Rfam assigns this 89-nucleotide sequence from Tetracentron sinense to the family "Small nucleolar RNA snR60/Z15/Z230/Z193/J17". The organism belongs to Tetracentron, within Eukaryota. The base pairs follow the family's consensus structure. The literature on the family includes a 1999 paper in Science by Lowe and Eddy, "A computational screen for methylation guide snoRNAs in yeast".
[Rfam]
RNA sequence: GAGAGUUGUGUCAUGAACAAUAGCAUAGUUCAGAUGAUAAUCUCUGUGAUUACAUUUACUUAGUCUUUCGCUCCUAUCUGAUGACUAUA
Numbered sequence: 001g002a003g004a005g006u007u008g009u010g011u012c013a014u015g016a017a018c019a020a021u022a023g024c025a026u027a028g029u030u031c032a033g034a035u036g037a038u039a040a041u042c043u044c045u046g047u048g049a050u051u052a053c054a055u056u057u058a059c060u061u062a063g064u065c066u067u068u069c070g071c072u073c074c075u076a077u078c079u080g081a082u083g084a085c086u087a088u089a
Base pairs, nucleotide, nucleotide: 004086005085006084007083008082